[Rfam]
RNA sequence: UGCGGAACCCUAAGAGGGGGGCCUGCACGCCGAGGUUAUUUCCCAGCCCUUCGAUGCAUGGUCCCCCCUUAGUGGACUGCA
Numbered sequence: 001u002g003c004g005g006a007a008c009c010c011u012a013a014g015a016g017g018g019g020g021g022c023c024u025g026c027a028c029g030c031c032g033a034g035g036u037u038a039u040u041u042c043c044c045a046g047c048c049c050u051u052c053g054a055u056g057c058a059u060g061g062u063c064c065c066c067c068c069u070u071a072g073u074g075g076a077c078u079g080c081a
Stems, first nucleotide, its partner, number of pairs: 001081005008075002010072005016066005022060001024058004032051004